This 75-nucleotide sequence from Alligator mississippiensis belongs to the Rfam family "Mammalian CPEB3 ribozyme". The base pairs follow the family's consensus structure, which is taken from published work.

RNA sequence: UGAGAAAAUUGAGGCCACAGCAGAAGUGGUCAUGACAUGGUCCUGUCAUGUUCCAGUGAAUCUGCAAAUUCUGCA
Numbered sequence: 001u002g003a004g005a006a007a008a009u010u011g012a013g014g015c016c017a018c019a020g021c022a023g024a025a026g027u028g029g030u031c032a033u034g035a036c037a038u039g040g041u042c043c044u045g046u047c048a049u050g051u052u053c054c055a056g057u058g059a060a061u062c063u064g065c066a067a068a069u070u071c072u073g074c075a
Stems, first nucleotide, its partner, number of pairs: 011043001013042004020074006026038003047064002050061004
Dot-bracket structure: ..........[.[[[[...(((((((((.......)))]]]]]...((.((((....)))).))....)))))).